This 89-nucleotide RNA from Shewanella woodyi belongs to the Rfam family "t44 RNA". The family's RNA type in Rfam is small RNA. The base pairs follow the family's consensus structure, which was predicted with LocARNA.
RNA sequence: AACUUGUAAAUACUAAAUCACACACGUGUCGACACAUUCUCCGGGGUGCCUCUAGAAGGUCGGAGAUAUGGGAUACGUGGAGGUCUAAC
Numbered sequence: 001a002a003c004u005u006g007u008a009a010a011u012a013c014u015a016a017a018u019c020a021c022a023c024a025c026g027u028g029u030c031g032a033c034a035c036a037u038u039c040u041c042c043g044g045g046g047u048g049c050c051u052c053u054a055g056a057a058g059g060u061c062g063g064a065g066a067u068a069u070g071g072g073a074u075a076c077g078u079g080g081a082g083g084u085c086u087a088a089c
Stems, first nucleotide, its partner, number of pairs: 023079008035070003040064004048060004